The family of this 185-nucleotide RNA from Microcebus murinus is "Small nucleolar RNA SNORA81". The match comes from Rfam's covariance-model search (119 bits). Pairs were carried over by alignment from the consensus structure, which was predicted with WAR. A reference for the family is Gu et al. (2005), "A novel experimental approach for systematic identification of box H/ACA snoRNAs from eukaryotes", Nucleic Acids Res.
RNA sequence: AUCUUCUUGUUUAAGCUCUGUGCUAAAAUCACAGAAACUAAUAUUAUGUCUUAGCAUUUGUAAUAAAGCUAGCAGAGAAAACACAAGGGAAAAAAACUGAACAACUAUACCAGAUAGGAGAAAAAUUGAGUUGAACCUCUUUCUUAAGUCCAGAGUACGUUGUUCUAAGAUUUGGUACAAUAAUA
Numbered sequence: 001a002u003c004u005u006c007u008u009g010u011u012u013a014a015g016c017u018c019u020g021u022g023c024u025a026a027a028a029u030c031a032c033a034g035a036a037a038c039u040a041a042u043a044u045u046a047u048g049u050c051u052u053a054g055c056a057u058u059u060g061u062a063a064u065a066a067a068g069c070u071a072g073c074a075g076a077g078a079a080a081a082c083a084c085a086a087g088g089g090a091a092a093a094a095a096a097c098u099g100a101a102c103a104a105c106u107a108u109a110c111c112a113g114a115u116a117g118g119a120g121a122a123a124a125a126u127u128g129a130g131u132u133g134a135a136c137c138u139c140u141u142u143c144u145u146a147a148g149u150c151c152a153g154a155g156u157a158c159g160u161u162g163u164u165c166u167a168a169g170a171u172u173u174g175g176u177a178c179a180a181u182a183a184u185a
Stems, first nucleotide, its partner, number of pairs: 018077002021074005029066001031064001034058002038054004043049002106179001108177007128156001132152002135149001